[Rfam]
RNA sequence: CUGCACACCAGUAGACCUUAUCUGGUGGUUCUCACAGCCAGGCGAGGGGGAUGGUGUGUGCUACAAAAACCUGGGGUUGCUGUAGGCUGUGAUCAGCCUCAGCGUGGCUGGUUGAACUGCAAUACUCCAACAUAU
Numbered sequence: 001c002u003g004c005a006c007a008c009c010a011g012u013a014g015a016c017c018u019u020a021u022c023u024g025g026u027g028g029u030u031c032u033c034a035c036a037g038c039c040a041g042g043c044g045a046g047g048g049g050g051a052u053g054g055u056g057u058g059u060g061c062u063a064c065a066a067a068a069a070c071c072u073g074g075g076g077u078u079g080c081u082g083u084a085g086g087c088u089g090u091g092a093u094c095a096g097c098c099u100c101a102g103c104g105u106g107g108c109u110g111g112u113u114g115a116a117c118u119g120c121a122a123u124a125c126u127c128c129a130a131c132a133u134a135u
Stems, first nucleotide, its partner, number of pairs: 003061006016047004021042004073128004078124001081121003093111005